Shown here is a 74-nucleotide RNA from Desulfobacula toluolica, a member of the family "tRNA".
Rfam's curators write: Transfer RNA (tRNA) molecules are approximately 80 nucleotides in length.
NCBI's taxonomy places the organism under Bacteria, Pseudomonadati, Thermodesulfobacteriota, Desulfobacteria, Desulfobacula toluolica.
RNA sequence: GCGCCCGUAGCUCAGCUGGAUAGAGUAUCUGACUACGAAUCAGGGGGUCGCAGGUUCGAAUCCUGCCGGGCGCG
Numbered sequence: 001g002c003g004c005c006c007g008u009a010g011c012u013c014a015g016c017u018g019g020a021u022a023g024a025g026u027a028u029c030u031g032a033c034u035a036c037g038a039a040u041c042a043g044g045g046g047g048u049c050g051c052a053g054g055u056u057c058g059a060a061u062c063c064u065g066c067c068g069g070g071c072g073c074g
Base pairs, nucleotide, nucleotide: 001073002072003071004070005069006068007067010026011025012024013023028044029043030042031041032040050066051065052064053063054062
Source information: The family's RNA type in Rfam is transfer RNA. The base pairs follow the family's consensus structure, which is taken from published work.